[Rfam]
RNA sequence: GUUCUUACAAUGUCUAGUUAAAGUUAACCGACACUUAGCCGGACAUUUUAAGAACGA
Numbered sequence: 001g002u003u004c005u006u007a008c009a010a011u012g013u014c015u016a017g018u019u020a021a022a023g024u025u026a027a028c029c030g031a032c033a034c035u036u037a038g039c040c041g042g043a044c045a046u047u048u049u050a051a052g053a054a055c056g057a
Stems, first nucleotide, its partner, number of pairs: 001055007009047003013043003017039005023032003
RNA: mir-3015 microRNA precursor family
Organism: Acyrthosiphon pisum